[Rfam]
RNA sequence: GGGUAACAUUGAAAAGUUUAGAUGUUUCCUGAUUCACGCUUCCAACAAAAAACUUCUGCAAUUUCCUGCUUGUAGUUCUCGAGCAAGAUCUGCAAGUCUCAAAUAGCCAGAUACAUGA
Numbered sequence: 001g002g003g004u005a006a007c008a009u010u011g012a013a014a015a016g017u018u019u020a021g022a023u024g025u026u027u028c029c030u031g032a033u034u035c036a037c038g039c040u041u042c043c044a045a046c047a048a049a050a051a052a053c054u055u056c057u058g059c060a061a062u063u064u065c066c067u068g069c070u071u072g073u074a075g076u077u078c079u080c081g082a083g084c085a086a087g088a089u090c091u092g093c094a095a096g097u098c099u100c101a102a103a104u105a106g107c108c109a110g111a112u113a114c115a116u117g118a
Stems, first nucleotide, its partner, number of pairs: 001030003005026006055111003068097008077088003
Record summary
A member of the RNA family "Small nucleolar RNA snoR104" from Olea europaea, 118 nucleotides long. It is annotated as an H/ACA-box small nucleolar RNA. Rfam 15.1 lists 612 matches to the family in 228 species.